A member of the RNA family "mir-181 microRNA precursor family" from Danio rerio, 79 nucleotides long. Rfam 15.1 lists 3,490 matches to the family in 650 species. Pairs were carried over by alignment from the consensus structure, which was predicted with PFOLD. The literature on the family includes a 2001 paper in Cell by Ambros, "microRNAs: tiny regulators with great potential".
[Rfam]
RNA sequence: GGGUCCUGAUUCACAUUCAUUGCUGUCGGUGGGUUUUAUCUCUUCGACUCGCCGGACAAUGAAUGAGAACUACGGCUCC
Numbered sequence: 001g002g003g004u005c006c007u008g009a010u011u012c013a014c015a016u017u018c019a020u021u022g023c024u025g026u027c028g029g030u031g032g033g034u035u036u037u038a039u040c041u042c043u044u045c046g047a048c049u050c051g052c053c054g055g056a057c058a059a060u061g062a063a064u065g066a067g068a069a070c071u072a073c074g075g076c077u078c079c
Stems, first nucleotide, its partner, number of pairs: 001079003004075002007072002014065009026055006033048003